[Rfam]
Nucleotides: 047
Stems, first nucleotide, its partner, number of pairs: 010025004032044003
Number, partner (000 for none) and nucleotide at each position: 001000a002000u003000u004000u005000c006000u007000u008000u009000u010025a011024u012023c013022g014000u015000g016000u017000a018000u019000c020000c021000u022013c023012g024011a025010u026000u027000g028000a029000u030000g031000c032044a033043g034042c035000c036000u037000c038000a039000g040000a041000u042034g043033c044032u045000c046000a047000a